[Rfam]
RNA sequence: GAGUGUUAUAGCUCUUUUAGUUUGUCUAGCAGGUUUUCUGGAUUUUACCAGAAAGUCUGC
Numbered sequence: 001g002a003g004u005g006u007u008a009u010a011g012c013u014c015u016u017u018u019a020g021u022u023u024g025u026c027u028a029g030c031a032g033g034u035u036u037u038c039u040g041g042a043u044u045u046u047a048c049c050a051g052a053a054a055g056u057c058u059g060c
Stems, first nucleotide, its partner, number of pairs: 032057010
RNA: U7 small nuclear RNA
Organism: Cebus imitator